[Rfam]
RNA: SAM riboswitch aptamer (S box leader)
Organism: Saliterribacillus persicus
RNA sequence: CUCUUAUCGAGAGAGGUGGAGGGACUUGGCCCGACGAAACCCGGCAACCAUUAAGUUACAUACUUAAUACAGGUGCCAAAUCCAUCAGGAUAAUCCUGAAAGAUAAGAA
Numbered sequence: 001c002u003c004u005u006a007u008c009g010a011g012a013g014a015g016g017u018g019g020a021g022g023g024a025c026u027u028g029g030c031c032c033g034a035c036g037a038a039a040c041c042c043g044g045c046a047a048c049c050a051u052u053a054a055g056u057u058a059c060a061u062a063c064u065u066a067a068u069a070c071a072g073g074u075g076c077c078a079a080a081u082c083c084a085u086c087a088g089g090a091u092a093a094u095c096c097u098g099a100a101a102g103a104u105a106a107g108a109a
Stems, first nucleotide, its partner, number of pairs: 002108007013042001015041003021032003027084003043077004048073002050068006081101001086098005